[Rfam]
RNA sequence: ACUUGCACUGAGUGGCCAGAUUAUCAUGCUCUCUGAACGCAUAAUAAUCUGGCCACUCAGUGUAUGU
Numbered sequence: 001a002c003u004u005g006c007a008c009u010g011a012g013u014g015g016c017c018a019g020a021u022u023a024u025c026a027u028g029c030u031c032u033c034u035g036a037a038c039g040c041a042u043a044a045u046a047a048u049c050u051g052g053c054c055a056c057u058c059a060g061u062g063u064a065u066g067u
Stems, first nucleotide, its partner, number of pairs: 004064014019049006026042003
RNA: mir-9256 microRNA precursor family